The record is a 65-nucleotide RNA sequence from Tenebrionibacter intestinalis, which matches "DnaX ribosomal frameshifting element" in Rfam. Rfam classes the family as a frameshift element. A reference for the family is Larsen et al. (1997), "Structural probing and mutagenic analysis of the stem-loop required for Escherichia coli dnaX ribosomal frameshifting: programmed efficiency of 50%", J Mol Biol. A search with the family's covariance model found it, with a score of 44 bits. Rfam links the family to the GO term translational frameshifting.
[Rfam]
RNA sequence: AGAAAGGAGAUUCCAGAACAAAAAAGAAUGAACCGGCGGCGCAGCGAUCGGCGCGGCCGGUAGCC
Number, nucleotide and partner (000 for none) at each position: 001a000002g000003a000004a000005a000006g000007g000008a000009g000010a000011u000012u000013c000014c000015a000016g000017a000018a000019c000020a000021a000022a000023a000024a000025a000026g000027a000028a000029u000030g000031a000032a061033c060034c059035g058036g057037c056038g000039g054040c053041g000042c050043a000044g000045c000046g000047a000048u000049c000050g042051g000052c000053g040054c039055g000056g037057c036058c035059g034060g033061u032062a000063g000064c000065c000